[Rfam]
RNA sequence: CCCGGUCCUCGGUAGUGGCCUUCGGGGUCGCGACGCGCACCAUGCAGCCGUCGACCCGCGGGCCUCGAUCGAAGACCGGC
Dot-bracket structure: .((((((.(((((...(((((.((((.(((.....................))))))).)))))...))))).)))))).
Shown here is an 80-nucleotide RNA sequence from Nocardioides panacis, a member of the family "Actino-pnp RNA". The family's RNA type in Rfam is cis-regulatory element. The match comes from Rfam's covariance-model search (62 bits). Lineage of the source: Bacteria > Bacillati > Actinomycetota > Propionibacteriales > Nocardioides.